RNA sequence: UGCGGCAAAGGAAAUGGUGUCUUCCUAUUUGAACCGUCCCGCUAAAGGCAGGACUGAUGGCGCCUACAGAUUA
Numbered sequence: 001u002g003c004g005g006c007a008a009a010g011g012a013a014a015u016g017g018u019g020u021c022u023u024c025c026u027a028u029u030u031g032a033a034c035c036g037u038c039c040c041g042c043u044a045a046a047g048g049c050a051g052g053a054c055u056g057a058u059g060g061c062g063c064c065u066a067c068a069g070a071u072u073a
Stems, first nucleotide, its partner, number of pairs: 010025004016064006036054004
RNA: Fluoride riboswitch aptamer (crcB RNA motif)